This 47-nucleotide RNA sequence from Triplophysa tibetana belongs to the Rfam family "Histone 3' UTR stem-loop". Gene Ontology term of the family: mRNA 3'-end processing by stem-loop binding and cleavage. Rfam describes the family as follows. The mRNAs of metazoan histone genes lack a poly-A tail. 3' end processing occurs at a site between a highly conserved stem-loop (modelled by this family) and a purine rich region around 20 nts downstream (the histone downstream element, or HDE).
RNA sequence: CCCAAGGCUCUUUUAAGAGCCACCCAAUUCACCUUUAAAAGAACGAU
Number, nucleotide and partner (000 for none) at each position: 001c000002c000003c000004a000005a000006g021007g020008c019009u018010c017011u016012u000013u000014u000015a000016a011017g010018a009019g008020c007021c006022a000023c000024c000025c000026a000027a000028u000029u000030c000031a000032c000033c000034u000035u000036u000037a000038a000039a000040a000041g000042a000043a000044c000045g000046a000047u000